Small nucleolar RNA SNORD115: an 82-nucleotide sequence from Carlito syrichta. The match comes from Rfam's covariance-model search (65 bits). It is annotated as a C/D-box small nucleolar RNA. Gene Ontology terms of the family: RNA processing and nucleolus. The base pairs follow the family's consensus structure, which was predicted with PFOLD. The family has 32 seed sequences and 3,387 matches in Rfam 15.1.
RNA sequence: GGGUCAAUGAUGAGUAGUUUAUAUUGGCUUUAGGGGCGGUGAUGACUCAAAUAUCAGGUACAAUGGCAUGACGCUGAGGCUC
Number, nucleotide and partner (000 for none) at each position: 001g082002g081003g080004u079005c076006a075007a000008u073009g072010a000011u000012g000013a000014g000015u000016a000017g000018u000019u000020u000021a000022u000023a000024u000025u000026g000027g000028c000029u000030u000031u000032a000033g000034g000035g000036g000037c000038g000039g000040u000041g000042a000043u000044g000045a000046c000047u000048c000049a000050a000051a000052u000053a000054u000055c000056a000057g000058g000059u000060a000061c000062a000063a000064u000065g000066g000067c000068a000069u000070g000071a000072c009073g008074c000075u006076g005077a000078g000079g004080c003081u002082c001